[Rfam]
RNA sequence: UCUCUUGAAUGAUGAGAAUAAGCAAUUUCAGUUAUCCCUGUCUGAUGUAUUCUGCUGAUAGCUUGUGAUCUGACAAGACA
Numbered sequence: 001u002c003u004c005u006u007g008a009a010u011g012a013u014g015a016g017a018a019u020a021a022g023c024a025a026u027u028u029c030a031g032u033u034a035u036c037c038c039u040g041u042c043u044g045a046u047g048u049a050u051u052c053u054g055c056u057g058a059u060a061g062c063u064u065g066u067g068a069u070c071u072g073a074c075a076a077g078a079c080a
Stems, first nucleotide, its partner, number of pairs: 001080001003078005

A member of the RNA family "Small nucleolar RNA R38" from Ipomoea nil, 80 nucleotides long. The family's RNA type in Rfam is C/D-box small nucleolar RNA. It scores 51 bits against the family's covariance model. snoR38 is a C/D box small nucleolar RNA conserved across yeast, human, Arabidopsis and rice. Lineage of the source: Eukaryota > Viridiplantae > Streptophytina > Solanales > Ipomoea.